[Rfam]
RNA: ASpks TB sRNA
Organism: Chondromyces crocatus
RNA sequence: CUUGAUGGAGCCGAGCCAGAGAGGCUGUUGCGCCUGGCGCCCUUGCCCAUAGGUAGCGAGCAAGGCCUGCGCCUC
Numbered sequence: 001c002u003u004g005a006u007g008g009a010g011c012c013g014a015g016c017c018a019g020a021g022a023g024g025c026u027g028u029u030g031c032g033c034c035u036g037g038c039g040c041c042c043u044u045g046c047c048c049a050u051a052g053g054u055a056g057c058g059a060g061c062a063a064g065g066c067c068u069g070c071g072c073c074u075c
Stems, first nucleotide, its partner, number of pairs: 014026004031071003038065001043060002047056001049054001